A member of the RNA family "Glycine riboswitch aptamer" from Trinickia dabaoshanensis, 166 nucleotides long. A search with the family's covariance model found it, with a score of 41 bits. For this family Rfam cites "A glycine-dependent riboswitch that uses cooperative binding to control gene expression" (Mandal et al., Science, 2004).
[Rfam]
Nucleotides: 166
Stems, first nucleotide, its partner, number of pairs: 007160001009158005020078006080145003083141002087139003093133008
Number, partner (000 for none) and nucleotide at each position: 001000u002000u003000u004000u005000c006000g007160c008000a009158c010157u011156c012155u013154g014000g015000a016000g017000a018000g019000a020078g021077g022076c023075g024074g025073u026000a027000g028000u029000u030000c031000a032000u033000g034000g035000c036000g037000g038000c039000g040000c041000a042000c043000c044000g045000g046000u047000a048000a049000c050000c051000a052000c053000g054000g055000u056000u057000u058000c059000g060000c061000g062000c063000g064000c065000c066000g067000g068000u069000u070000c071000a072000a073025g074024c075023c076022g077021c078020c079000c080145a081144c082143c083141g084140a085000a086000g087139g088138g089137g090000c091000g092000c093133g094132c095131g096130u097129c098128g099127a100126g101000c102000g103000g104000g105000a106000a107000a108000c109000g110000a111000a112000a113000a114000u115000u116000c117000g118000u119000c120000c121000c122000c123000c124000c125000a126100u127099u128098c129097g130096g131095c132094g133093c134000a135000a136000u137089c138088u139087c140084u141083c142000a143082g144081g145080u146000a147000c148000c149000g150000a151000g152000g153000a154013c155012a156011g157010a158009g159000g160007g161000g162000u163000c164000a165000u166000g